This 273-nucleotide sequence from Oryza sativa belongs to the Rfam family "MIR821 microRNA precursor family". The organism belongs to Oryza sativa, within Eukaryota. It scores 250 bits against the family's covariance model. Gene Ontology terms of the family: miRNA-mediated post-transcriptional gene silencing and RISC complex.
RNA sequence: GAUUUCAACUAAAAAAGUCAUCAAUAACAAAGUUGUAUAACUCAUCAAUAUCUAUAACUUUUGCUUUUGUCAUUUCUUCAUCCGACGAAGUAUUAGUAACAUUGUUCACAAAAUUGACAUAUCUGUGUUAUAGUUUAUAAAACCAGACGAGAUAUGUGAAUUUUGUGAACAAUGUUACUAUCACUUUGUCAGAUAAAGAAAUGACCAAAAUAAAAGUUAUAGAUCUUGAUGAGUUAUAUAACUUUGUUGUUGAUGACUUUUUCAAUUGAAAUC
Numbered sequence: 001g002a003u004u005u006c007a008a009c010u011a012a013a014a015a016a017g018u019c020a021u022c023a024a025u026a027a028c029a030a031a032g033u034u035g036u037a038u039a040a041c042u043c044a045u046c047a048a049u050a051u052c053u054a055u056a057a058c059u060u061u062u063g064c065u066u067u068u069g070u071c072a073u074u075u076c077u078u079c080a081u082c083c084g085a086c087g088a089a090g091u092a093u094u095a096g097u098a099a100c101a102u103u104g105u106u107c108a109c110a111a112a113a114u115u116g117a118c119a120u121a122u123c124u125g126u127g128u129u130a131u132a133g134u135u136u137a138u139a140a141a142a143c144c145a146g147a148c149g150a151g152a153u154a155u156g157u158g159a160a161u162u163u164u165g166u167g168a169a170c171a172a173u174g175u176u177a178c179u180a181u182c183a184c185u186u187u188g189u190c191a192g193a194u195a196a197a198g199a200a201a202u203g204a205c206c207a208a209a210a211u212a213a214a215a216g217u218u219a220u221a222g223a224u225c226u227u228g229a230u231g232a233g234u235u236a237u238a239u240a241a242c243u244u245u246g247u248u249g250u251u252g253a254u255g256a257c258u259u260u261u262u263c264a265a266u267u268g269a270a271a272u273c
Stems, first nucleotide, its partner, number of pairs: 014260008023251002026248002030244013044230005050224004055219009065209003069205007077197002080194002084190008094180006101173012114160002117157006131145001133143004